[Rfam]
RNA: Eukaryotic large subunit ribosomal RNA, nucleotides 2877 to 3277
RNA sequence: GAAUGUGUCGUGAUAGUAAUUCAACCUAGUACGAGAGGAACCGUUGAUUCACACAAUUGGUCAUCGCGCUUGGUUGAAAAGCCAGUGGCGCGAAGCUAUCGUGUGUAGGAUUAUGACUGAACGCCUCUAAGUCAGAAUCCACGCUAAGAUGCGACGCUUAGGCCUAUCGUUCGCCUGUUGGCCUAAAGUAGGGGCUUGCCCCCAAGGGCACACGACCCCGGGCUAGUCUAGUGUCAUAGAAGGUUGGAUGGCAUGGGCCCCGUAAGAAAUGAUAGUUAAGAACGAACGAUGGGUAGAAUCCUUUGCAGACGACUUAAAUUUGCGCCGGGGCAUUGUAAGUGGCAGAGUGGCCUUGCUGCCACGAUCCACUGAGAUCCAACCCUAUGUUGCAGUAGAUUCGU
Numbered sequence: 001g002a003a004u005g006u007g008u009c010g011u012g013a014u015a016g017u018a019a020u021u022c023a024a025c026c027u028a029g030u031a032c033g034a035g036a037g038g039a040a041c042c043g044u045u046g047a048u049u050c051a052c053a054c055a056a057u058u059g060g061u062c063a064u065c066g067c068g069c070u071u072g073g074u075u076g077a078a079a080a081g082c083c084a085g086u087g088g089c090g091c092g093a094a095g096c097u098a099u100c101g102u103g104u105g106u107a108g109g110a111u112u113a114u115g116a117c118u119g120a121a122c123g124c125c126u127c128u129a130a131g132u133c134a135g136a137a138u139c140c141a142c143g144c145u146a147a148g149a150u151g152c153g154a155c156g157c158u159u160a161g162g163c164c165u166a167u168c169g170u171u172c173g174c175c176u177g178u179u180g181g182c183c184u185a186a187a188g189u190a191g192g193g194g195c196u197u198g199c200c201c202c203c204a205a206g207g208g209c210a211c212a213c214g215a216c217c218c219c220g221g222g223c224u225a226g227u228c229u230a231g232u233g234u235c236a237u238a239g240a241a242g243g244u245u246g247g248a249u250g251g252c253a254u255g256g257g258c259c260c261c262g263u264a265a266g267a268a269a270u271g272a273u274a275g276u277u278a279a280g281a282a283c284g285a286a287c288g289a290u291g292g293g294u295a296g297a298a299u300c301c302u303u304u305g306c307a308g309a310c311g312a313c314u315u316a317a318a319u320u321u322g323c324g325c326c327g328g329g330g331c332a333u334u335g336u337a338a339g340u341g342g343c344a345g346a347g348u349g350g351c352c353u354u355g356c357u358g359c360c361a362c363g364a365u366c367c368a369c370u371g372a373g374a375u376c377c378a379a380c381c382c383u384a385u386g387u388u389g390c391a392g393u394a395g396a397u398u399c400g401u
Stems, first nucleotide, its partner, number of pairs: 005157007014146004019049001021047005050105005058098003065092005070085006108140002114134005164292007296399005302316001305313001322390003326386002328382003332375002339369004344365001347362005
Dot-bracket structure: ....(((((((..((((.(.(((((.................))))).)(((((...(((....(((((((((((....))))))..)))))...)))..)))))..((....(((((...........)))))....))..))))....)))))))......(((((((...................................................................................................................)))))))...(((((.(..(.......)..).....(((.(((((.((.....((((.(..(((((......)))))..)))))....))....)))..)).)))....)))))..